[Rfam]
RNA sequence: AGUCAAGAGUCUUUGGCACCGUUUUGGUGAGCGGAUUUCCUUUGCCUGAAAAAAGGCAGUGAAGACCAUG
Numbered sequence: 001a002g003u004c005a006a007g008a009g010u011c012u013u014u015g016g017c018a019c020c021g022u023u024u025u026g027g028u029g030a031g032c033g034g035a036u037u038u039c040c041u042u043u044g045c046c047u048g049a050a051a052a053a054a055g056g057c058a059g060u061g062a063a064g065a066c067c068a069u070g
Base pairs, nucleotide, nucleotide: 009066010065011064012063013062014061019056020055022054023053024052025051029047031045032044033043034042035041
Dot-bracket structure: ........((((((....((.((((...(.(((((.....))))).)...))))))....))))))....
The family of this 70-nucleotide RNA from Rhizobium sp. RU20A is "S-element". Rfam describes the family as follows. This family represents a group of S-elements from p42d and related plasmids. The S-element has multiple functions and is believed to act as a negative regulator of repC transcription, be required for efficient replication and act as a translational enhancer of repC. Rfam classes the family as a cis-regulatory element. The base pairs follow the family's consensus structure, which is taken from published work. On this family, see Venkova-Canova et al., Mol Microbiol 2004: "Two discrete elements are required for the replication of a repABC plasmid: an antisense RNA and a stem-loop structure".